Record summary:
The record is a 165-nucleotide RNA sequence from Phyllostomus discolor, which matches "Small Cajal body specific RNA 16" in Rfam. By type it is a small Cajal body RNA. The source organism's lineage runs through Eukaryota, Dipnotetrapodomorpha, Theria, Phyllostominae and Phyllostomus. Rfam 15.1 lists 790 matches to the family in 514 species. scaRNAs are a specific class of small nuclear RNAs which localise to the Cajal bodies and guide the modification of RNA polymerase II transcribed spliceosomal RNAs U1, U2, U4, U5 and U12. ACA47 belongs to the H/ACA box class of guide RNAs as it has the predicted hairpin-hinge-hairpin-tail structure, the conserved H/ACA-box motifs and is found associated with GAR1. ACA47 is predicted to guide the pseudouridylation of residue U5 of the U1 spliceosomal snRNA. On this family, see Darzacq et al., EMBO J 2002: "Cajal body-specific small nuclear RNAs: a novel class of 2'-O-methylation and pseudouridylation guide RNAs".
[Rfam]
RNA sequence: AUGGUCUGGGGCAAGGAGCCUGUCUGGUUGAAUUUGCCCUGUUGUGGGUUCGGCCCUGACCUCAGAUAAAGUCCCAGGAGAAGUUUUUCCAGGGUUUUGAAUUCACAGUAAUGGAUGUGAACAUUCUAGCAGCAGCUUGAUGAUCAUGCAUGACUUUAAAAAAAA
Numbered sequence: 001a002u003g004g005u006c007u008g009g010g011g012c013a014a015g016g017a018g019c020c021u022g023u024c025u026g027g028u029u030g031a032a033u034u035u036g037c038c039c040u041g042u043u044g045u046g047g048g049u050u051c052g053g054c055c056c057u058g059a060c061c062u063c064a065g066a067u068a069a070a071g072u073c074c075c076a077g078g079a080g081a082a083g084u085u086u087u088u089c090c091a092g093g094g095u096u097u098u099g100a101a102u103u104c105a106c107a108g109u110a111a112u113g114g115a116u117g118u119g120a121a122c123a124u125u126c127u128a129g130c131a132g133c134a135g136c137u138u139g140a141u142g143a144u145c146a147u148g149c150a151u152g153a154c155u156u157u158a159a160a161a162a163a164a165a
Stems, first nucleotide, its partner, number of pairs: 003061004008056003015050001019048004024044001026038003030034001073094003077089004102160002105157001107155003112150002118146003122142004128137003
Dot-bracket structure: ..((((.(((....(...((((.(.(((.(...).))).....))))).)...))).))))...........(((.((((.....))))..))).......((.(.(((..((....(((.((((..(((....))).)))).)))..))..))).).)).....